[Rfam]
RNA sequence: GUCCGUUCAUCCUAAUUAGGACGCAUGAAAUCUGAUCAUGGAACGGGGAUCAGAU
Number, nucleotide and partner (000 for none) at each position: 001g000002u000003c000004c045005g044006u043007u042008c041009a000010u021011c020012c019013u018014a000015a000016u000017u000018a013019g012020g011021a010022c000023g000024c000025a000026u000027g000028a000029a000030a055031u054032c053033u052034g051035a050036u048037c047038a000039u000040g000041g008042a007043a006044c005045g004046g000047g037048g036049a000050u035051c034052a033053g032054a031055u030